[Rfam]
RNA: Group II catalytic intron D1-D4-2
Organism: Chamaesiphon minutus
RNA sequence: GAGGGAAGGCCCCUCGGAGCCGCCAUUCAGGUGGAGGCUUCAAACCACCGUAAGCUGCAUCGGUAAAGAGCCGAGGUGGUGAGCGUUACGGAAAAGGCAGAGCAAGACUCUGUCAGGU
Numbered sequence: 001g002a003g004g005g006a007a008g009g010c011c012c013c014u015c016g017g018a019g020c021c022g023c024c025a026u027u028c029a030g031g032u033g034g035a036g037g038c039u040u041c042a043a044a045c046c047a048c049c050g051u052a053a054g055c056u057g058c059a060u061c062g063g064u065a066a067a068g069a070g071c072c073g074a075g076g077u078g079g080u081g082a083g084c085g086u087u088a089c090g091g092a093a094a095a096g097g098c099a100g101a102g103c104a105a106g107a108c109u110c111u112g113u114c115a116g117g118u
Stems, first nucleotide, its partner, number of pairs: 001015005016041006023034004046117001048091006054080002057077002061073004096114006